A member of the RNA family "Plant signal recognition particle RNA" from Cucumis sativus, 304 nucleotides long. It is annotated as a non-coding RNA gene. NCBI's taxonomy places the organism under Eukaryota, Viridiplantae, Euphyllophyta, Pentapetalae, Cucumis. Its Rfam clan is "SRP clan". It scores 204 bits against the family's covariance model. Pairs were carried over by alignment from the consensus structure, which is taken from published work. A reference for the family is Wild et al. (2002), "Towards the structure of the mammalian signal recognition particle", Curr Opin Struct Biol.
[Rfam]
RNA sequence: GCCGAGCUCGGUCGUGUGAGCUUGUAACCCAAAUGGGGGCAUUGAAGUGGUUGAAGGUUGUUUCGUUCCACCGUGUAGGGUUUGACCGAGGCGACCUCCGGCUUGCCCGUUACAAGUUGGGAGUUGGGCCUUGGGCUCUCGACGUAGGCCGAGAGUCCAUUGCUCCUAAAGAUUGGUGGGCACCGCGUUAGGCUGGUUCACAGAGCAGCGUAACCACCCACUCUCAUCGGUGUAAGGAUUACAAGCCGGUUCUCGGUGGCCUAUCAUUACACAGUCGGAUGUUCCCAGUCCGACGACCACUUUU
Dot-bracket structure: ((((((((((......)))))))....(((....))))))...((((((((((..(((((...(((.(.((.((((((((((.(..(..((.((...((((((((.((.(((((.(.(((((((.((((..((((((((((.(....).))))))))))..))))(....)...(((((.....((((....(((.....)))....))))..))))).))))))).)..)))))))....)))))))))))).).)))))).....))))).)).).)))....))).))..)))))))))).
Numbered sequence: 001g002c003c004g005a006g007c008u009c010g011g012u013c014g015u016g017u018g019a020g021c022u023u024g025u026a027a028c029c030c031a032a033a034u035g036g037g038g039g040c041a042u043u044g045a046a047g048u049g050g051u052u053g054a055a056g057g058u059u060g061u062u063u064c065g066u067u068c069c070a071c072c073g074u075g076u077a078g079g080g081u082u083u084g085a086c087c088g089a090g091g092c093g094a095c096c097u098c099c100g101g102c103u104u105g106c107c108c109g110u111u112a113c114a115a116g117u118u119g120g121g122a123g124u125u126g127g128g129c130c131u132u133g134g135g136c137u138c139u140c141g142a143c144g145u146a147g148g149c150c151g152a153g154a155g156u157c158c159a160u161u162g163c164u165c166c167u168a169a170a171g172a173u174u175g176g177u178g179g180g181c182a183c184c185g186c187g188u189u190a191g192g193c194u195g196g197u198u199c200a201c202a203g204a205g206c207a208g209c210g211u212a213a214c215c216a217c218c219c220a221c222u223c224u225c226a227u228c229g230g231u232g233u234a235a236g237g238a239u240u241a242c243a244a245g246c247c248g249g250u251u252c253u254c255g256g257u258g259g260c261c262u263a264u265c266a267u268u269a270c271a272c273a274g275u276c277g278g279a280u281g282u283u284c285c286c287a288g289u290c291c292g293a294c295g296a297c298c299a300c301u302u303u304u
Stems, first nucleotide, its partner, number of pairs: 001040003004023007028037003044303010056291002058288003064281003068277001070275002073272005078262005084257001087255001090253002093251002098249008107237002110235005116228001118226007126165004132159010143148001166171001175218005185211004193203003